The record is a 111-nucleotide sequence from Clostridium tetani, which matches "Ribosomal protein L20 leader" in Rfam. Rfam describes the family as follows. This family is a putative r-protein leader autoregulatory structure found in B. subtilis and other low-GC Gram-positive bacteria. Lineage of the source: Bacteria > Bacillati > Bacillota > Clostridia > Clostridium tetani. Rfam classes the family as a cis-regulatory leader.
RNA sequence: AACGUUAAGAAGAAACUAGCCGUUUCUCACCUUACAGCAUAGCUAGUAAGGUUAUGAAAUCAGUUUAUUAUUUUGAUUAGAGGACGGCAUUUGCCGUCUUUUUUUAUUUUA
Numbered sequence: 001a002a003c004g005u006u007a008a009g010a011a012g013a014a015a016c017u018a019g020c021c022g023u024u025u026c027u028c029a030c031c032u033u034a035c036a037g038c039a040u041a042g043c044u045a046g047u048a049a050g051g052u053u054a055u056g057a058a059a060u061c062a063g064u065u066u067a068u069u070a071u072u073u074u075g076a077u078u079a080g081a082g083g084a085c086g087g088c089a090u091u092u093g094c095c096g097u098c099u100u101u102u103u104u105u106a107u108u109u110u111a
Stems, first nucleotide, its partner, number of pairs: 011027006029052003034047002037043002083098006